[Rfam]
RNA sequence: GGUAUGUAUUUUAAUCCCACGAUAAGCCCCGGAACUUAUUGUGAUGAAGAAUAUACGAA
Numbered sequence: 001g002g003u004a005u006g007u008a009u010u011u012u013a014a015u016c017c018c019a020c021g022a023u024a025a026g027c028c029c030c031g032g033a034a035c036u037u038a039u040u041g042u043g044a045u046g047a048a049g050a051a052u053a054u055a056c057g058a059a
Base pairs, nucleotide, nucleotide: 007055008054009053011051012050018043019042020041021040022039023038024037025036026035

This 59-nucleotide RNA sequence from Bacillus yapensis belongs to the Rfam family "Ribosomal protein L13 leader". By type it is a cis-regulatory leader. For this family Rfam cites "Diverse mechanisms for regulating ribosomal protein synthesis in Escherichia coli" (Zengel and Lindahl, Prog Nucleic Acid Res Mol Biol, 1994). Rfam's curators write: This family is a putative r-protein leader autoregulatory structure found in B. subtilis and other low-GC Gram-positive bacteria. It is located in the 5' untranslated regions of mRNAs encoding the L13-S9 (rplM-rpsI) ribosomal protein operon.